Rfam assigns this 368-nucleotide sequence from Sarcina sp. DSM 11001 to the family "Bacterial RNase P class A". It scores 320 bits against the family's covariance model. The base pairs follow the family's consensus structure, which is taken from published work. The organism belongs to Sarcina, within Bacteria. Rfam links the family to the GO terms dimeric ribonuclease P complex, tRNA processing and ribonuclease P activity.
[Rfam]
RNA sequence: UAAGCAGAGCGGAUGGUCGCGGUCCGGAGAGAUCCGGACUGAGGAAAGUCCGGGCUUCGCAGGGCAGGAUGCCGGAUAACGUCCGGUGGAGGUGACUCCCAGGCCAGUGCAACAGAAAUAUACCGCCUGCGGUGCAGAUCAGAUCCAGCUGAUCUGCUUCGCCGGUAAGGGUGAAAAGGCAGUGUAAGAGACUACCGUCUUUGUGGUAACACAAAGAGCCAUGUAAACCCCAUCCGAAGCAAGACCGAAACGAGGACCAUGGGUCGGCCCGGCCCGUUCUCAGGUGGGUCGCUUGAGGCUGUCGGUGACGGCAGUCCCAGAUAGAUGAUCAUCCAAGACAGAACCCGGCUUACAGCUCUGCUUAUUUU
Numbered sequence: 001u002a003a004g005c006a007g008a009g010c011g012g013a014u015g016g017u018c019g020c021g022g023u024c025c026g027g028a029g030a031g032a033u034c035c036g037g038a039c040u041g042a043g044g045a046a047a048g049u050c051c052g053g054g055c056u057u058c059g060c061a062g063g064g065c066a067g068g069a070u071g072c073c074g075g076a077u078a079a080c081g082u083c084c085g086g087u088g089g090a091g092g093u094g095a096c097u098c099c100c101a102g103g104c105c106a107g108u109g110c111a112a113c114a115g116a117a118a119u120a121u122a123c124c125g126c127c128u129g130c131g132g133u134g135c136a137g138a139u140c141a142g143a144u145c146c147a148g149c150u151g152a153u154c155u156g157c158u159u160c161g162c163c164g165g166u167a168a169g170g171g172u173g174a175a176a177a178g179g180c181a182g183u184g185u186a187a188g189a190g191a192c193u194a195c196c197g198u199c200u201u202u203g204u205g206g207u208a209a210c211a212c213a214a215a216g217a218g219c220c221a222u223g224u225a226a227a228c229c230c231c232a233u234c235c236g237a238a239g240c241a242a243g244a245c246c247g248a249a250a251c252g253a254g255g256a257c258c259a260u261g262g263g264u265c266g267g268c269c270c271g272g273c274c275c276g277u278u279c280u281c282a283g284g285u286g287g288g289u290c291g292c293u294u295g296a297g298g299c300u301g302u303c304g305g306u307g308a309c310g311g312c313a314g315u316c317c318c319a320g321a322u323a324g325a326u327g328a329u330c331a332u333c334c335a336a337g338a339c340a341g342a343a344c345c346c347g348g349c350u351u352a353c354a355g356c357u358c359u360g361c362u363u364a365u366u367u368u
Stems, first nucleotide, its partner, number of pairs: 001364010011353001012333007020041009046351003050348005055239004062270004067235005072086005087101001088099004102230002107228002109224003123170002125166003129162004178196002181193003197219001198217008243290004252281006261275005297316008